Description
The record is a 155-nucleotide sequence from Vitis vinifera, which matches "MIR845_2 microRNA precursor family" in Rfam.
[Rfam]
RNA sequence: AUAGGAAGCAUUCAUUAUCCCUAGGGUCAUGGGAUGAAUAAAAUAUCAUGUAAAACCAAAUUAACACAUCCUACAAAACCAAGUUAACGCAUCCUAGAAUGGUUCUAGAAUGCUUACUAACACAUGGCUUUGAUACCAAUUGAUGGGAAAAUCCC
Numbered sequence: 001a002u003a004g005g006a007a008g009c010a011u012u013c014a015u016u017a018u019c020c021c022u023a024g025g026g027u028c029a030u031g032g033g034a035u036g037a038a039u040a041a042a043a044u045a046u047c048a049u050g051u052a053a054a055a056c057c058a059a060a061u062u063a064a065c066a067c068a069u070c071c072u073a074c075a076a077a078a079c080c081a082a083g084u085u086a087a088c089g090c091a092u093c094c095u096a097g098a099a100u101g102g103u104u105c106u107a108g109a110a111u112g113c114u115u116a117c118u119a120a121c122a123c124a125u126g127g128c129u130u131u132g133a134u135a136c137c138a139a140u141u142g143a144u145g146g147g148a149a150a151a152u153c154c155c
Stems, first nucleotide, its partner, number of pairs: 009145004014140003022132010033121001049110001054104002057101002061097003
Rfam links the family to the GO terms RISC complex and miRNA-mediated post-transcriptional gene silencing. The literature on the family includes a 2007 paper in Nature by Jaillon et al., "The grapevine genome sequence suggests ancestral hexaploidization in major angiosperm phyla".